The family of this 137-nucleotide sequence from Modestobacter sp. DSM 44400 is "Group II catalytic intron D1-D4-4".
Group II introns are found in rRNA, tRNA and mRNA of organelles in fungi, plants and protists, and also in mRNA in bacteria.
Gene Ontology term of the family: Group II intron splicing.
The match comes from Rfam's covariance-model search (94 bits).
RNA sequence: UUGCCGGUGGGAGUCCGGUCCGGGUAGCUGUCAGGAGGCCCGGUAGCAGACUAGCGGCUUGGUCUGGAAACGGACCGGGUCGAAGCCCAGUGUCAAAAGCCCUGUCAGGGGAAGCGACUGAACGGUUCGCAGCAUUA
Numbered sequence: 001u002u003g004c005c006g007g008u009g010g011g012a013g014u015c016c017g018g019u020c021c022g023g024g025u026a027g028c029u030g031u032c033a034g035g036a037g038g039c040c041c042g043g044u045a046g047c048a049g050a051c052u053a054g055c056g057g058c059u060u061g062g063u064c065u066g067g068a069a070a071c072g073g074a075c076c077g078g079g080u081c082g083a084a085g086c087c088c089a090g091u092g093u094c095a096a097a098a099g100c101c102c103u104g105u106c107a108g109g110g111g112a113a114g115c116g117a118c119u120g121a122a123c124g125g126u127u128c129g130c131a132g133c134a135u136u137a
Stems, first nucleotide, its partner, number of pairs: 020043005050091003054087001055082006064073001066071001101111003114130003